[Rfam]
RNA sequence: GAUGCUGGACCUGCCGGCGCCAAGGGUGCAGCUGCCCUGCUUGCACCUGUGACACUGGGGCAGAGAGGGAACGGCUACUUCUACACUCAGUGCUCAGAACAGUGGGCACUAAGAAUGGUUUGUAGCCAUUA
Numbered sequence: 001g002a003u004g005c006u007g008g009a010c011c012u013g014c015c016g017g018c019g020c021c022a023a024g025g026g027u028g029c030a031g032c033u034g035c036c037c038u039g040c041u042u043g044c045a046c047c048u049g050u051g052a053c054a055c056u057g058g059g060g061c062a063g064a065g066a067g068g069g070a071a072c073g074g075c076u077a078c079u080u081c082u083a084c085a086c087u088c089a090g091u092g093c094u095c096a097g098a099a100c101a102g103u104g105g106g107c108a109c110u111a112a113g114a115a116u117g118g119u120u121u122g123u124a125g126c127c128a129u130u131a
Stems, first nucleotide, its partner, number of pairs: 003060001005058004022050001024048002073127003081118003086113002091108006
Shown here is a 131-nucleotide RNA from Delphinapterus leucas, a member of the family "Small nucleolar RNA SNORA43". Rfam's curators write: ACA43 is a member of the H/ACA class of snoRNA that guide the sites of modification of uridines to pseudouridines.